[Rfam]
This 244-nucleotide sequence from Drosophila ananassae belongs to the Rfam family "R2 RNA element". About the family: This family represents the 3' UTR region of the R2 retrotransposable element. This family is known to interact with the R2-encoded reverse transcriptase in a reaction known as target primed reverse transcription (TPRT). The literature on the family includes a 2004 paper in RNA by Ruschak et al., "Secondary structure models of the 3' untranslated regions of diverse R2 RNAs". It is annotated as a cis-regulatory element.
RNA sequence: ACUUAGCCAAUGCACGGGUUCCAGAUUAAGCUUGCUGCCGAAGCAUACCAUCAAAAUCGGCAUAAAAUUCGCUAAAUAAAGGAGGUGGUUUUAGUACGUACGCGUCCCGGAACUUGUCUCGGGAUGAAUCGUGCAUGCGUAUAAUUGGGAUCGAUAACAAAUACCAACAAAGUUAUUACUAAUAUAUCGAAAUAAUGAAUAUCCCGUCCUUACGUAUCUUUGAAGAUUUCCAUCCUCAGCGAAC
Numbered sequence: 001a002c003u004u005a006g007c008c009a010a011u012g013c014a015c016g017g018g019u020u021c022c023a024g025a026u027u028a029a030g031c032u033u034g035c036u037g038c039c040g041a042a043g044c045a046u047a048c049c050a051u052c053a054a055a056a057u058c059g060g061c062a063u064a065a066a067a068u069u070c071g072c073u074a075a076a077u078a079a080a081g082g083a084g085g086u087g088g089u090u091u092u093a094g095u096a097c098g099u100a101c102g103c104g105u106c107c108c109g110g111a112a113c114u115u116g117u118c119u120c121g122g123g124a125u126g127a128a129u130c131g132u133g134c135a136u137g138c139g140u141a142u143a144a145u146u147g148g149g150a151u152c153g154a155u156a157a158c159a160a161a162u163a164c165c166a167a168c169a170a171a172g173u174u175a176u177u178a179c180u181a182a183u184a185u186a187u188c189g190a191a192a193u194a195a196u197g198a199a200u201a202u203c204c205c206g207u208c209c210u211u212a213c214g215u216a217u218c219u220u221u222g223a224a225g226a227u228u229u230c231c232a233u234c235c236u237c238a239g240c241g242a243a244c
Base pairs, nucleotide, nucleotide: 036062037061038060039059040058041057068243069242070241071240072239082237083236084235085234086232087231088230094134095133096132097131098130103126104125105124106123107122108121109120110119112117136216137215138214139213140212141211